The record is a 106-nucleotide sequence from Rhodomicrobium vannielii, which matches "rpsB sRNA" in Rfam. Rfam classes the family as a small RNA. A reference for the family is Meyer et al. (2009), "Identification of candidate structured RNAs in the marine organism 'Candidatus Pelagibacter ubique'", BMC Genomics.
[Rfam]
RNA sequence: CACACGCGGGGAUUAUGUCAGGGCCGUUACGCGGCCCUUUUUGGCAUUCCGGUGAUGGCAUCGCCAUCCACAGCCCCGCGGAGGCUUAACCGGACGAAGGACAUAC
Numbered sequence: 001c002a003c004a005c006g007c008g009g010g011g012a013u014u015a016u017g018u019c020a021g022g023g024c025c026g027u028u029a030c031g032c033g034g035c036c037c038u039u040u041u042u043g044g045c046a047u048u049c050c051g052g053u054g055a056u057g058g059c060a061u062c063g064c065c066a067u068c069c070a071c072a073g074c075c076c077c078g079c080g081g082a083g084g085c086u087u088a089a090c091c092g093g094a095c096g097a098a099g100g101a102c103a104u105a106c
Stems, first nucleotide, its partner, number of pairs: 001083001003081001005080007015047009054068006